[Rfam]
RNA sequence: GCCCAUCAUCAAGAGAAGGGCUGGCGCCCUCGCCAACCUGCCAACCGCGGCAAGGUGGCUCCAAUACGGGAUGUGGCGGCAUUUGCGUUUUGAACGUUGUGCCUGCAACCAAGCGGAGAUUU
Numbered sequence: 001g002c003c004c005a006u007c008a009u010c011a012a013g014a015g016a017a018g019g020g021c022u023g024g025c026g027c028c029c030u031c032g033c034c035a036a037c038c039u040g041c042c043a044a045c046c047g048c049g050g051c052a053a054g055g056u057g058g059c060u061c062c063a064a065u066a067c068g069g070g071a072u073g074u075g076g077c078g079g080c081a082u083u084u085g086c087g088u089u090u091u092g093a094a095c096g097u098u099g100u101g102c103c104u105g106c107a108a109c110c111a112a113g114c115g116g117a118g119a120u121u122u
Base pairs, nucleotide, nucleotide: 007073008072009071010070015031017030018029019028020027021026032059033058034057037055038054039053040051041050042049046116076106077105078104079103
This 122-nucleotide RNA from Cohaesibacter celericrescens belongs to the Rfam family "SAM-I/IV (S-adenosyl methionine) riboswitch aptamer". Its family is annotated with regulation of gene expression and S-adenosylmethionine metabolic process in the Gene Ontology. The organism belongs to Cohaesibacter, within Bacteria. Rfam 15.1 lists 567 matches to the family in 508 species. The base pairs follow the family's consensus structure, which is taken from published work. Its Rfam clan is "SAM clan".